Rfam assigns this 140-nucleotide RNA sequence from Eudyptes chrysocome to the family "Small nucleolar RNA SNORA5". The organism belongs to Eudyptes, within Eukaryota. Rfam describes the family as follows. ACA5 is a member of the H/ACA class of snoRNA that guide the sites of modification of uridines to pseudouridines.
RNA sequence: UGCAGCCCUGUCAAAUUCGAUCCCUGCCUCCUCCAUGGCGGGGACCGGCCAACCGGCUGCCACAGCAACUUCUGUAGUCCAUGAGCCCCACGUCCCCUUCCCGUGGGACGCUGGGGGAUAAAAUCACGCCACAGACACGU
Numbered sequence: 001u002g003c004a005g006c007c008c009u010g011u012c013a014a015a016u017u018c019g020a021u022c023c024c025u026g027c028c029u030c031c032u033c034c035a036u037g038g039c040g041g042g043g044a045c046c047g048g049c050c051a052a053c054c055g056g057c058u059g060c061c062a063c064a065g066c067a068a069c070u071u072c073u074g075u076a077g078u079c080c081a082u083g084a085g086c087c088c089c090a091c092g093u094c095c096c097c098u099u100c101c102c103g104u105g106g107g108a109c110g111c112u113g114g115g116g117g118a119u120a121a122a123a124u125c126a127c128g129c130c131a132c133a134g135a136c137a138c139g140u
Stems, first nucleotide, its partner, number of pairs: 002060004018047002021044008074132002077129002086117004